Source information:
This 155-nucleotide RNA sequence from Corticibacter populi belongs to the Rfam family "radC RNA". The family's consensus secondary structure is taken from published work. By type it is a cis-regulatory element. Taxonomically the source falls in Corticibacter (Bacteria, Pseudomonadota, Burkholderiales, Comamonadaceae).
[Rfam]
RNA sequence: AUUCUGGCGGCAUGUUCGCUGGCGUUGCCGGCAGCAUGCCCAGGCAGUCGAGACCUUCAAGACUGUGGCGCGGGUCUCCGUGCCGGUUGUUUGUCCUCGUCGGACGCAUACCGCGUCCAUUCACCCCCCAAGGGAUCUUCCUCCCUUGUGGGCGG
Numbered sequence: 001a002u003u004c005u006g007g008c009g010g011c012a013u014g015u016u017c018g019c020u021g022g023c024g025u026u027g028c029c030g031g032c033a034g035c036a037u038g039c040c041c042a043g044g045c046a047g048u049c050g051a052g053a054c055c056u057u058c059a060a061g062a063c064u065g066u067g068g069c070g071c072g073g074g075u076c077u078c079c080g081u082g083c084c085g086g087u088u089g090u091u092u093g094u095c096c097u098c099g100u101c102g103g104a105c106g107c108a109u110a111c112c113g114c115g116u117c118c119a120u121u122c123a124c125c126c127c128c129c130a131a132g133g134g135a136u137c138u139u140c141c142u143c144c145c146u147u148g149u150g151g152g153c154g155g
Base pairs, nucleotide, nucleotide: 011038012037013036014035015033018032019031020030021029022028023027044066045065046064047063048062049061052088053087054086055085067084068083069082070081071080072079073078121155122154129148130147131146132145133144134143135142